[Rfam]
RNA sequence: AAAGCAGGGAUUGUGUGUAUCGGCGUUGUGCUAUUAUAAAUGCACUUUGCUCGAAAGUGUUCUCUGCAAAAUUGACUUUUGGGGAAGAUGGGCAGUUGAGUUUCAUCUGUUGACUGGAAAUUUUCAACAAUCAUUUUCCCCACAUCU
Numbered sequence: 001a002a003a004g005c006a007g008g009g010a011u012u013g014u015g016u017g018u019a020u021c022g023g024c025g026u027u028g029u030g031c032u033a034u035u036a037u038a039a040a041u042g043c044a045c046u047u048u049g050c051u052c053g054a055a056a057g058u059g060u061u062c063u064c065u066g067c068a069a070a071a072u073u074g075a076c077u078u079u080u081g082g083g084g085a086a087g088a089u090g091g092g093c094a095g096u097u098g099a100g101u102u103u104c105a106u107c108u109g110u111u112g113a114c115u116g117g118a119a120a121u122u123u124u125c126a127a128c129a130a131u132c133a134u135u136u137u138c139c140c141c142a143c144a145u146c147u
Stems, first nucleotide, its partner, number of pairs: 004067007015045006081141011095128004
Dot-bracket structure: ...(((((((....((((((...................))))))...............))))))).............(((((((((((...((((..........................))))..)))))))))))......
Rfam assigns this 147-nucleotide RNA sequence from Solanum lycopersicum to the family "small nucleolar RNA snoR135". Its family is annotated with nucleolus and RNA processing in the Gene Ontology. It scores 142 bits against the family's covariance model.